[Rfam]
RNA: mir-16 microRNA precursor family
RNA sequence: GUCUUGUUUUAGCAGCAUGUAAAUAUUGGAGUUACACCACGACAGAUGUCUCCAGUAUGCUCGUGCUGCUGAAGCAAGAA
Numbered sequence: 001g002u003c004u005u006g007u008u009u010u011a012g013c014a015g016c017a018u019g020u021a022a023a024u025a026u027u028g029g030a031g032u033u034a035c036a037c038c039a040c041g042a043c044a045g046a047u048g049u050c051u052c053c054a055g056u057a058u059g060c061u062c063g064u065g066c067u068g069c070u071g072a073a074g075c076a077a078g079a080a
Stems, first nucleotide, its partner, number of pairs: 002079002005076003010073001011070008023058007